[Rfam]
RNA sequence: CUUCGAUAAUGGCAAACUUGUUGAAAGGCAAGGACGCAAAGCCACGGGUCUAAGGUUCUUUGUCGAAAGAACGAUGAUCGCCGGGUUACCGAA
Numbered sequence: 001c002u003u004c005g006a007u008a009a010u011g012g013c014a015a016a017c018u019u020g021u022u023g024a025a026a027g028g029c030a031a032g033g034a035c036g037c038a039a040a041g042c043c044a045c046g047g048g049u050c051u052a053a054g055g056u057u058c059u060u061u062g063u064c065g066a067a068a069g070a071a072c073g074a075u076g077a078u079c080g081c082c083g084g085g086u087u088a089c090c091g092a093a
Base pairs, nucleotide, nucleotide: 012037013036017032018031019030020029021028022027040087041086042085043084045083046082047081048078049077050076055072056071057070058069059068060067061066